A member of the RNA family "drz-agam-1 ribozyme" from Hermetia illucens, 79 nucleotides long. Its family is annotated with catalytic activity in the Gene Ontology. On this family, see Webb et al., Science 2009: "Widespread occurrence of self-cleaving ribozymes".

RNA sequence: UGCUACCAAACGCUAUCUCCACCUCCUCUUGGUAAUCGCCGGGAGUUUUUUCUUAAUGAAAAACUCCAAACGGAGAAGA
Numbered sequence: 001u002g003c004u005a006c007c008a009a010a011c012g013c014u015a016u017c018u019c020c021a022c023c024u025c026c027u028c029u030u031g032g033u034a035a036u037c038g039c040c041g042g043g044a045g046u047u048u049u050u051u052c053u054u055a056a057u058g059a060a061a062a063a064c065u066c067c068a069a070a071c072g073g074a075g076a077a078g079a
Base pairs, nucleotide, nucleotide: 013078014077016075018073019072021033022032023031043066044065045064046063047062048061049060050059052058